[Rfam]
nhaA-I RNA: a 63-nucleotide RNA. Pairs were carried over by alignment from the consensus structure, which is taken from published work. It is annotated as a riboswitch. The sequence is in the family's curated seed alignment. Acidobacteria, Alphaproteobacteria, Betaproteobacteria and Gammaproteobacteria, Verrucomicrobia, cand. division NC10.
RNA sequence: GGGUGCUAGCUGCAGAGUGCAGUGAAGCAGGUUAAUCGAACAUCGCCGGUCGGGCCGCCAGCG
Numbered sequence: 001g002g003g004u005g006c007u008a009g010c011u012g013c014a015g016a017g018u019g020c021a022g023u024g025a026a027g028c029a030g031g032u033u034a035a036u037c038g039a040a041c042a043u044c045g046c047c048g049g050u051c052g053g054g055c056c057g058c059c060a061g062c063g
Stems, first nucleotide, its partner, number of pairs: 005028003009023003044063003048059003